[Rfam]
RNA sequence: GGUGGAGAGUUCCAAAGGGAUCGCAUUGAUCUAAUUCUUGUAGAUGUUUACACUUGCAAGCUUUGCAUGCAAUUCCUGGAUUCAGAUGUGAUUCAGUGGUUCACUUAUUGGAUCAUGCGAUCCCUUAGGAACUUUCCAUCA
Numbered sequence: 001g002g003u004g005g006a007g008a009g010u011u012c013c014a015a016a017g018g019g020a021u022c023g024c025a026u027u028g029a030u031c032u033a034a035u036u037c038u039u040g041u042a043g044a045u046g047u048u049u050a051c052a053c054u055u056g057c058a059a060g061c062u063u064u065g066c067a068u069g070c071a072a073u074u075c076c077u078g079g080a081u082u083c084a085g086a087u088g089u090g091a092u093u094c095a096g097u098g099g100u101u102c103a104c105u106u107a108u109u110g111g112a113u114c115a116u117g118c119g120a121u122c123c124c125u126u127a128g129g130a131a132c133u134u135u136c137c138a139u140c141a
Base pairs, nucleotide, nucleotide: 002139003138004137005136006135008133009132010131011130012129013128015126016125017124018123019122020121021120023118024117025116026115028114029113030112031111032110033109034108035107
Shown here is a 141-nucleotide RNA from Glycine max, a member of the family "mir-393 microRNA precursor family". Taxonomically the source falls in Glycine subgen. Soja (Eukaryota, Euphyllophyta, fabids, Fabales). On this family, see Kruszka et al., J Plant Physiol 2012: "Role of microRNAs and other sRNAs of plants in their changing environments". Rfam 15.1 lists 1,052 matches to the family in 221 species. Rfam's curators put it in the seed alignment.